[Rfam]
RNA sequence: AUUUUUUCAGCAGCAGUGCCCGCUAAAAAAA
Numbered sequence: 001a002u003u004u005u006u007u008c009a010g011c012a013g014c015a016g017u018g019c020c021c022g023c024u025a026a027a028a029a030a031a
Stems, first nucleotide, its partner, number of pairs: 002030006009024003013020001014018001
Dot-bracket structure: .((((((.(((.((...).).))))))))).